RNA sequence: CUGACAGAAGAGAGUGAGCACACGCAGGCAAUUGUAUAGAGGACUAUACUCUUGUUUGAGUUGCGUGUGCUCACUUCUCUUCUGUCAG
Numbered sequence: 001c002u003g004a005c006a007g008a009a010g011a012g013a014g015u016g017a018g019c020a021c022a023c024g025c026a027g028g029c030a031a032u033u034g035u036a037u038a039g040a041g042g043a044c045u046a047u048a049c050u051c052u053u054g055u056u057u058g059a060g061u062u063g064c065g066u067g068u069g070c071u072c073a074c075u076u077c078u079c080u081u082c083u084g085u086c087a088g
Stems, first nucleotide, its partner, number of pairs: 001088012013075009023065003

About this RNA
A member of the RNA family "mir-156 microRNA precursor family" from Helianthus annuus, 88 nucleotides long. For this family Rfam cites "MicroRNAs in plants" (Reinhart et al., Genes Dev, 2002). The family's consensus secondary structure was predicted with PFOLD. This family represents the plant microRNA (miRNA) precursor mir-156.